[Rfam]
RNA sequence: ACUCCGGUAUUGCGACAGUAAUCUAGGUCAGUACGAGAGGAACACCUAGUUCGCAUAAUUGGUAAAUGCAGCUGGCUGAAAAGCCAUUGCUGCGAUGCUACCAUGCGUGAGAUUACGACUGAACGCCUCUAAGUCGGAAUCUUUGCUGACUAAGCAAUGCUGUAUAACGCUUACACUGUUACGUGAGAAGAAAUAGAUCUUAUCUGAUUUCGCCGGUAGGUUACAGUCGACAGAGACUAAUAUCAACUAAUGCUAAAGUCGAAUGGUGGAAGCGAUAAAUCCUUUGUAUACGACUUAGUUUCAUCCGGGUAUUGUAAGCAUGAGAGAUAUCUUUGCAUGUCGAGGUGCUGAGGUUUGUCCCUGGUUUCUAUGAUUUGU
Numbered sequence: 001a002c003u004c005c006g007g008u009a010u011u012g013c014g015a016c017a018g019u020a021a022u023c024u025a026g027g028u029c030a031g032u033a034c035g036a037g038a039g040g041a042a043c044a045c046c047u048a049g050u051u052c053g054c055a056u057a058a059u060u061g062g063u064a065a066a067u068g069c070a071g072c073u074g075g076c077u078g079a080a081a082a083g084c085c086a087u088u089g090c091u092g093c094g095a096u097g098c099u100a101c102c103a104u105g106c107g108u109g110a111g112a113u114u115a116c117g118a119c120u121g122a123a124c125g126c127c128u129c130u131a132a133g134u135c136g137g138a139a140u141c142u143u144u145g146c147u148g149a150c151u152a153a154g155c156a157a158u159g160c161u162g163u164a165u166a167a168c169g170c171u172u173a174c175a176c177u178g179u180u181a182c183g184u185g186a187g188a189a190g191a192a193a194u195a196g197a198u199c200u201u202a203u204c205u206g207a208u209u210u211c212g213c214c215g216g217u218a219g220g221u222u223a224c225a226g227u228c229g230a231c232a233g234a235g236a237c238u239a240a241u242a243u244c245a246a247c248u249a250a251u252g253c254u255a256a257a258g259u260c261g262a263a264u265g266g267u268g269g270a271a272g273c274g275a276u277a278a279a280u281c282c283u284u285u286g287u288a289u290a291c292g293a294c295u296u297a298g299u300u301u302c303a304u305c306c307g308g309g310u311a312u313u314g315u316a317a318g319c320a321u322g323a324g325a326g327a328u329a330u331c332u333u334u335g336c337a338u339g340u341c342g343a344g345g346u347g348c349u350g351a352g353g354u355u356u357g358u359c360c361c362u363g364g365u366u367u368c369u370a371u372g373a374u375u376u377g378u
Stems, first nucleotide, its partner, number of pairs: 006161008016148004021051001023049006052107005060100003067094005073086005109143003116136005169273004174268002277376005282298002286294001303366001305364002307361003311354002318348004326341005

Eukaryotic large subunit ribosomal RNA: a 378-nucleotide part of an RNA from uncultured eukaryote HF0200_37F04. For this family Rfam cites "Crystal structure of the ribosome at 5.5 A resolution" (Yusupov et al., Science, 2001). The organism belongs to named eukaryotic clones, within Eukaryota. The base pairs follow the family's consensus structure, which is taken from published work.